[Rfam]
RNA: BsrC
Organism: Peribacillus muralis
RNA sequence: AAAACCUAAAACAAUGAAAGCCCUGCCUCUCUCCCAUCCAUACGGUUCCUAGACCGCGCCUGCGAGAAUCAGGUAAAAGCUUGUAAG
Number, nucleotide and partner (000 for none) at each position: 001a000002a000003a000004a000005c000006c000007u000008a000009a000010a000011a000012c000013a000014a000015u000016g000017a000018a000019a000020g000021c000022c000023c000024u000025g000026c000027c000028u000029c000030u000031c000032u000033c000034c000035c066036a000037u000038c000039c062040a061041u058042a000043c056044g055045g054046u053047u052048c000049c000050u000051a000052g047053a046054c045055c044056g043057c000058g041059c000060c000061u040062g039063c000064g000065a000066g035067a000068a000069u000070c000071a000072g000073g000074u000075a000076a000077a000078a000079g000080c000081u000082u000083g000084u000085a000086a000087g000